[Rfam]
The record is a 105-nucleotide RNA sequence from Lupinus albus, which matches "MIR4414 microRNA precursor family" in Rfam. Taxonomically the source falls in Lupinus (Eukaryota, Mesangiospermae, eudicotyledons, core genistoids). Its family is annotated with RISC complex and miRNA-mediated post-transcriptional gene silencing in the Gene Ontology.

RNA sequence: ACUGAGACUCAGCUGCUGACUCGUUGGUUCGAGAGCUCAUCAUUAAAAUGUAGUAACAUGCAUGGUGUGCUUCUGAUCCAACGAUGCGGGAGCUGUGUUCAGUUA
Numbered sequence: 001a002c003u004g005a006g007a008c009u010c011a012g013c014u015g016c017u018g019a020c021u022c023g024u025u026g027g028u029u030c031g032a033g034a035g036c037u038c039a040u041c042a043u044u045a046a047a048a049u050g051u052a053g054u055a056a057c058a059u060g061c062a063u064g065g066u067g068u069g070c071u072u073c074u075g076a077u078c079c080a081a082c083g084a085u086g087c088g089g090g091a092g093c094u095g096u097g098u099u100c101a102g103u104u105a
Base pairs, nucleotide, nucleotide: 001103002102003101004100005099006098010095011094012093013092014091016089017088018087021084022083023082024081025080026079027078029076030075031074034071035070036069038067039066040065042063043062